[Rfam]
RNA: SAM riboswitch aptamer (S box leader)
RNA sequence: CUCUUAUCAAGAGAGGCGGAGGGACUAGCCCGAUGAAGCCCGGCAACCCCGGCCACCGAGCCGGAAGGUGCCAAUUCUUGCAGAAGCUUGGUUGCUUCUGAGAGAUAAGAG
Dot-bracket structure: ((((((((....(.(((...(((.[.[[)))......))))((((.((((((........))))..))))))...(]].]((((((........))))))..)))))))))
Numbered sequence: 001c002u003c004u005u006a007u008c009a010a011g012a013g014a015g016g017c018g019g020a021g022g023g024a025c026u027a028g029c030c031c032g033a034u035g036a037a038g039c040c041c042g043g044c045a046a047c048c049c050c051g052g053c054c055a056c057c058g059a060g061c062c063g064g065a066a067g068g069u070g071c072c073a074a075u076u077c078u079u080g081c082a083g084a085a086g087c088u089u090g091g092u093u094g095c096u097u098c099u100g101a102g103a104g105a106u107a108a109g110a111g
Stems, first nucleotide, its partner, number of pairs: 001111008013041001015040003021031003025080001027078002042072004047068002049064004076103001081100006